A member of the RNA family "Small nucleolar RNA SNORD18" from Theropithecus gelada, 70 nucleotides long. NCBI's taxonomy places the organism under Eukaryota, Eutheria, Euarchontoglires, Catarrhini, Theropithecus. Rfam 15.1 lists 2,622 matches to the family in 960 species. Its family is annotated with nucleolus and RNA processing in the Gene Ontology. The literature on the family includes a 1993 paper in Nucleic Acids Res by Prislei et al., "Two different snoRNAs are encoded in introns of amphibian and human L1 ribosomal protein genes". The family's consensus secondary structure was predicted with PFOLD. By type it is a C/D-box small nucleolar RNA. A search with the family's covariance model found it, with a score of 61 bits. Clan: SNORD18 clan.
[Rfam]
RNA sequence: UGUGUAUGAUGAGAUUUCACUUCAUGGUCUGUGUUUCUGAAACACACGGUUUUGUGGAAGCUCUGAUAUG
Numbered sequence: 001u002g003u004g005u006a007u008g009a010u011g012a013g014a015u016u017u018c019a020c021u022u023c024a025u026g027g028u029c030u031g032u033g034u035u036u037c038u039g040a041a042a043c044a045c046a047c048g049g050u051u052u053u054g055u056g057g058a059a060g061c062u063c064u065g066a067u068a069u070g
Base pairs, nucleotide, nucleotide: 001070002069003068004067